[Rfam]
RNA sequence: AACUCUGGCAAAGACGCGGUCGUGCAGUCUAAUAUUUGGCGUUCGAUUCAAAUGUUAACUGUAAGACUGUGUCUUUGACAUUGUU
Dot-bracket structure: ..(..((.(((.(((((((((.((((((..(((((((............))))))).)))))).))))))))).))).))..)..